[Rfam]
RNA: Actinobacteria sRNA Ms_IGR-5
Organism: Sanguibacter antarcticus
RNA sequence: ACACAGAAAAGGAGGUGGUCCAAGACAUGAUCUGUUCUCAGACGCGUGAGGUGGCUGUCCGCUAGUCGCCAGGUGCUCAGGUCGGGUCACCGACCGGUGAGCGACGGACGGCCGGACGGCAGUGCCGAUACCCGGGCCACCGCACCUUCACAGGUGGGCGGCAGCGAGUACCAGACAGCCACCGGAGCCCGUGGGAGCCGCGAUCUCGUCCAUCGCGGCAGGUGGGGGAGACCCCACCAGCCCACGGGCCCUUCUGU
Numbered sequence: 001a002c003a004c005a006g007a008a009a010a011g012g013a014g015g016u017g018g019u020c021c022a023a024g025a026c027a028u029g030a031u032c033u034g035u036u037c038u039c040a041g042a043c044g045c046g047u048g049a050g051g052u053g054g055c056u057g058u059c060c061g062c063u064a065g066u067c068g069c070c071a072g073g074u075g076c077u078c079a080g081g082u083c084g085g086g087u088c089a090c091c092g093a094c095c096g097g098u099g100a101g102c103g104a105c106g107g108a109c110g111g112c113c114g115g116a117c118g119g120c121a122g123u124g125c126c127g128a129u130a131c132c133c134g135g136g137c138c139a140c141c142g143c144a145c146c147u148u149c150a151c152a153g154g155u156g157g158g159c160g161g162c163a164g165c166g167a168g169u170a171c172c173a174g175a176c177a178g179c180c181a182c183c184g185g186a187g188c189c190c191g192u193g194g195g196a197g198c199c200g201c202g203a204u205c206u207c208g209u210c211c212a213u214c215g216c217g218g219c220a221g222g223u224g225g226g227g228g229a230g231a232c233c234c235c236a237c238c239a240g241c242c243c244a245c246g247g248g249c250c251c252u253u254c255u256g257u
Stems, first nucleotide, its partner, number of pairs: 014059006060166004066160001068159003184251002187249009199217006